[Rfam]
RNA sequence: GAAUGAAUGUAGCAUGGUACUGUCCACGGAAACUGAAUUACUUGUUUGAAAUGUCUGUGCCCUCUCUGAGUGACCAAUUGGUUCUUUGAUUUGCGGGCCUGGUUUAAACACACAUUC
Number, nucleotide and partner (000 for none) at each position: 001g000002a000003a000004u000005g000006a000007a000008u000009g000010u000011a000012g025013c000014a023015u022016g000017g000018u000019a000020c000021u000022g015023u014024c000025c012026a000027c000028g000029g000030a000031a000032a000033c000034u000035g000036a000037a000038u000039u000040a000041c000042u000043u000044g099045u000046u097047u096048g000049a000050a000051a000052u000053g090054u089055c088056u000057g084058u000059g082060c000061c000062c000063u000064c000065u000066c000067u000068g000069a000070g000071u000072g000073a000074c000075c000076a000077a000078u000079u000080g000081g000082u059083u000084c057085u000086u000087u000088g055089a054090u053091u000092u000093g000094c000095g000096g047097g046098c000099c044100u000101g000102g000103u000104u000105u000106a000107a000108a000109c000110a000111c000112a000113c000114a000115u000116u000117c000
Record summary
Small nucleolar RNA snoR100: a 117-nucleotide RNA sequence from Arabis nemorensis. The base pairs follow the family's consensus structure, which was predicted with WAR. Rfam 15.1 lists 1,851 matches to the family in 220 species. NCBI's taxonomy places the organism under Eukaryota, Streptophyta, Brassicales, Brassicaceae, Arabis.